The record is a 177-nucleotide RNA from Treponema sp. J25, which matches "Molybdenum/Tungsten riboswitch aptamer (Moco RNA motif)" in Rfam. The literature on the family includes a 2008 paper in Mol Microbiol by Regulski et al., "in molybdenum cofactor and tungsten cofactor metabolism". The family's consensus secondary structure is taken from published work. The match comes from Rfam's covariance-model search (78 bits).

RNA sequence: AUCCAUUAAAGACUCCGAGUCUGGGAACCUACACCAGUGGCAUGGUCCCCAGACCGGCGUGAAGUCUUUUUUGCCCGGGGUUUGCCUCGUUGCAAUGGCGAUAUCAGACUUCACCGAGGGUCUUGCGGGAAACCGCAGGGCCUCCCAUCUUUGGAAAGGAGUACGCUAGUGUCGCGC
Numbered sequence: 001a002u003c004c005a006u007u008a009a010a011g012a013c014u015c016c017g018a019g020u021c022u023g024g025g026a027a028c029c030u031a032c033a034c035c036a037g038u039g040g041c042a043u044g045g046u047c048c049c050c051a052g053a054c055c056g057g058c059g060u061g062a063a064g065u066c067u068u069u070u071u072u073g074c075c076c077g078g079g080g081u082u083u084g085c086c087u088c089g090u091u092g093c094a095a096u097g098g099c100g101a102u103a104u105c106a107g108a109c110u111u112c113a114c115c116g117a118g119g120g121u122c123u124u125g126c127g128g129g130a131a132a133c134c135g136c137a138g139g140g141c142c143u144c145c146c147a148u149c150u151u152u153g154g155a156a157a158g159g160a161g162u163a164c165g166c167u168a169g170u171g172u173c174g175c176g177c
Base pairs, nucleotide, nucleotide: 003171006168012162013161014160015159016158019054020053021052022051023050024049025048027046028045029044034040035039056115057114059112118143119142120141121140122139123138124137125136126135127134128133144154145153